[Rfam]
RNA sequence: UUGGUCGAAAGCGAAUCUUAGGAGCCACUUACAGACACUCGUUGUCUCAUUUCUCCUGGGAAGGUCUGAGACAAGGCCGACCGUGAGCGGAAGUUCGGUUCUGCAAGCGGUUCACUCUCUAGCAGGGAGGCGACAUGACGGUCGCGGGGCUGUACCAGAAACCCGGUGUCGGCGUUCGCAACGUACACGACUGCGCCUAAAAACGCACGAUGCGAUCGAGCGCUUGGAUGCCUUCUGACACGGCACCGGCCAGCUGAGCUGAGUGCGAUGGUUGAAUGUGAAACCCAAUUCAGACUAUUCUUCGACCAA
Numbered sequence: 001u002u003g004g005u006c007g008a009a010a011g012c013g014a015a016u017c018u019u020a021g022g023a024g025c026c027a028c029u030u031a032c033a034g035a036c037a038c039u040c041g042u043u044g045u046c047u048c049a050u051u052u053c054u055c056c057u058g059g060g061a062a063g064g065u066c067u068g069a070g071a072c073a074a075g076g077c078c079g080a081c082c083g084u085g086a087g088c089g090g091a092a093g094u095u096c097g098g099u100u101c102u103g104c105a106a107g108c109g110g111u112u113c114a115c116u117c118u119c120u121a122g123c124a125g126g127g128a129g130g131c132g133a134c135a136u137g138a139c140g141g142u143c144g145c146g147g148g149g150c151u152g153u154a155c156c157a158g159a160a161a162c163c164c165g166g167u168g169u170c171g172g173c174g175u176u177c178g179c180a181a182c183g184u185a186c187a188c189g190a191c192u193g194c195g196c197c198u199a200a201a202a203a204c205g206c207a208c209g210a211u212g213c214g215a216u217c218g219a220g221c222g223c224u225u226g227g228a229u230g231c232c233u234u235c236u237g238a239c240a241c242g243g244c245a246c247c248g249g250c251c252a253g254c255u256g257a258g259c260u261g262a263g264u265g266c267g268a269u270g271g272u273u274g275a276a277u278g279u280g281a282a283a284c285c286c287a288a289u290u291c292a293g294a295c296u297a298u299u300c301u302u303c304g305a306c307c308a309a
Base pairs, nucleotide, nucleotide: 001309002308003307004306007303008302009301015273017271018270020057021056022055023054024053033047034046035045036044037043066293067292068291069290070289075251076250077249078248115129116128117127118126119125130145131144132143133142134141146247147246149244150243151242152241165232166231167230
About this RNA: The family of this 309-nucleotide RNA from Steinernema carpocapsae is "Nuclear RNase P". From the family's description: Ribonuclease P (RNase P) is a ubiquitous endoribonuclease, found in archaea, bacteria and eukarya as well as chloroplasts and mitochondria. Taxonomically the source falls in Steinernema (Eukaryota, Rhabditida, Tylenchina, Panagrolaimomorpha). The family is grouped with related families in Rfam's "RNaseP clan". Rfam links the family to the GO terms ribonuclease P activity, tRNA processing and ribonuclease P complex.